[Rfam]
RNA sequence: GGGGCAAUAAGCUAGAGGCACCAACUGCAUAACUUGCGAGAAACUUGUUGGAUGAUGAUCUUGCCAAUGAUUUUGCCGCAAGUUAUGCAGUUGCUGCCUCAAGCUUACUGCCUUU
Numbered sequence: 001g002g003g004g005c006a007a008u009a010a011g012c013u014a015g016a017g018g019c020a021c022c023a024a025c026u027g028c029a030u031a032a033c034u035u036g037c038g039a040g041a042a043a044c045u046u047g048u049u050g051g052a053u054g055a056u057g058a059u060c061u062u063g064c065c066a067a068u069g070a071u072u073u074u075g076c077c078g079c080a081a082g083u084u085a086u087g088c089a090g091u092u093g094c095u096g097c098c099u100c101a102a103g104c105u106u107a108c109u110g111c112c113u114u115u
Stems, first nucleotide, its partner, number of pairs: 008107005015100002018097002028087003033082001035080004042073002046069001